[Rfam]
RNA sequence: AUUGAAUUCCCCGGAGAAUGCACUCCGGGAAGGUAGAGUAGAAAUUAAUAUGAUAAAAUAAAGUAGUAAAAAUGAACGAACACUUUCAAAA
Dot-bracket structure: ......((.(((((((......)))))))))..........................................(((........)))....
Numbered sequence: 001a002u003u004g005a006a007u008u009c010c011c012c013g014g015a016g017a018a019u020g021c022a023c024u025c026c027g028g029g030a031a032g033g034u035a036g037a038g039u040a041g042a043a044a045u046u047a048a049u050a051u052g053a054u055a056a057a058a059u060a061a062a063g064u065a066g067u068a069a070a071a072a073u074g075a076a077c078g079a080a081c082a083c084u085u086u087c088a089a090a091a
Stems, first nucleotide, its partner, number of pairs: 007031002010029007074087003